[Rfam]
RNA sequence: GAUAACGAUACGUUGCUAGCCCUGCCUCUCAAGCAACCAUGCGGCUCCAAAGACCGCGCCUGUUUUGAAUCAAUAUCUAUAACAACCG
Numbered sequence: 001g002a003u004a005a006c007g008a009u010a011c012g013u014u015g016c017u018a019g020c021c022c023u024g025c026c027u028c029u030c031a032a033g034c035a036a037c038c039a040u041g042c043g044g045c046u047c048c049a050a051a052g053a054c055c056g057c058g059c060c061u062g063u064u065u066u067g068a069a070u071c072a073a074u075a076u077c078u079a080u081a082a083c084a085a086c087c088g
Stems, first nucleotide, its partner, number of pairs: 034067002038062002040058005046052001